[Rfam]
RNA sequence: AGACUGAGAAAUCUCUGCAGGCAAAUGUGAUGUCUUGACCAGCAAUCUCACAGUUACCAGCAGAGGUUCUGCAAUCU
Numbered sequence: 001a002g003a004c005u006g007a008g009a010a011a012u013c014u015c016u017g018c019a020g021g022c023a024a025a026u027g028u029g030a031u032g033u034c035u036u037g038a039c040c041a042g043c044a045a046u047c048u049c050a051c052a053g054u055u056a057c058c059a060g061c062a063g064a065g066g067u068u069c070u071g072c073a074a075u076c077u
Stems, first nucleotide, its partner, number of pairs: 003075001005073002010068008021058001023055002026052005

The record is a 77-nucleotide RNA sequence from Anolis carolinensis, which matches "mir-216 microRNA precursor family" in Rfam. Rfam's curators put it in the seed alignment. The base pairs follow the family's consensus structure, which was predicted with WAR. Its family is annotated with miRNA-mediated post-transcriptional gene silencing and RISC complex in the Gene Ontology. The family has 57 seed sequences and 1,667 matches in Rfam 15.1. Its Rfam clan is "mir-216 clan".